The family of this 130-nucleotide RNA from Gossypium mustelinum is "MIR7502 microRNA precursor family". A search with the family's covariance model found it, with a score of 79 bits. Lineage of the source: Eukaryota > Embryophyta > rosids > Malvales > Gossypium. The family's consensus secondary structure was predicted with RNAalifold.
[Rfam]
RNA sequence: CAAUUAAAAAUUUAUCUAUUUGUACGGUUAAAACGAAAAAUCGGGCAGUGACACGUGGCGUGCCAUUUGUAUCUCAUGCUGACUUAUAAGGACCAAUUUUUAACAGUAAAAAUGAAUAAAUUUUUGAACA
Numbered sequence: 001c002a003a004u005u006a007a008a009a010a011u012u013u014a015u016c017u018a019u020u021u022g023u024a025c026g027g028u029u030a031a032a033a034c035g036a037a038a039a040a041u042c043g044g045g046c047a048g049u050g051a052c053a054c055g056u057g058g059c060g061u062g063c064c065a066u067u068u069g070u071a072u073c074u075c076a077u078g079c080u081g082a083c084u085u086a087u088a089a090g091g092a093c094c095a096a097u098u099u100u101u102a103a104c105a106g107u108a109a110a111a112a113u114g115a116a117u118a119a120a121u122u123u124u125u126g127a128a129c130a
Stems, first nucleotide, its partner, number of pairs: 004127012018113004023108003028103006